[Rfam]
RNA sequence: GGCUCUGUGAUUACAUGCCUCAAUUGGGCAAUAUACGCUAUUCUGAUUAUUUGAAUGAGUAGAAAUUUUUUAAUGAAGAAUGAGAGCU
Numbered sequence: 001g002g003c004u005c006u007g008u009g010a011u012u013a014c015a016u017g018c019c020u021c022a023a024u025u026g027g028g029c030a031a032u033a034u035a036c037g038c039u040a041u042u043c044u045g046a047u048u049a050u051u052u053g054a055a056u057g058a059g060u061a062g063a064a065a066u067u068u069u070u071u072a073a074u075g076a077a078g079a080a081u082g083a084g085a086g087c088u
Base pairs, nucleotide, nucleotide: 001088002087003086004085005084